[Rfam]
The family of this 157-nucleotide sequence from Aspergillus wentii is "A. fumigatus sRNA Afu_254".
The match comes from Rfam's covariance-model search (77 bits).
Rfam 15.1 lists 185 matches to the family in 142 species.
It is annotated as a small RNA.
On this family, see Jochl et al., Nucleic Acids Res 2008: "Small ncRNA transcriptome analysis from Aspergillus fumigatus suggests a novel mechanism for regulation of protein synthesis".
RNA sequence: AACAACAGCCUCGAUUCCUCACAACCACUCUUCAAACUCUUUCCAACAAAACCACUUUUCCAUCUACCAUCAAGAUGUCUCCCUGCUCUUGCAACUGCUGCUCCGGCAACUGCUCCAGCUGCCAGUGCUCCUCCUGCAGCGUAUGUCUCCCAUUGUA
Numbered sequence: 001a002a003c004a005a006c007a008g009c010c011u012c013g014a015u016u017c018c019u020c021a022c023a024a025c026c027a028c029u030c031u032u033c034a035a036a037c038u039c040u041u042u043c044c045a046a047c048a049a050a051a052c053c054a055c056u057u058u059u060c061c062a063u064c065u066a067c068c069a070u071c072a073a074g075a076u077g078u079c080u081c082c083c084u085g086c087u088c089u090u091g092c093a094a095c096u097g098c099u100g101c102u103c104c105g106g107c108a109a110c111u112g113c114u115c116c117a118g119c120u121g122c123c124a125g126u127g128c129u130c131c132u133c134c135u136g137c138a139g140c141g142u143a144u145g146u147c148u149c150c151c152a153u154u155g156u157a
Base pairs, nucleotide, nucleotide: 084108085107086106087105091101092100093099112137113136121128122127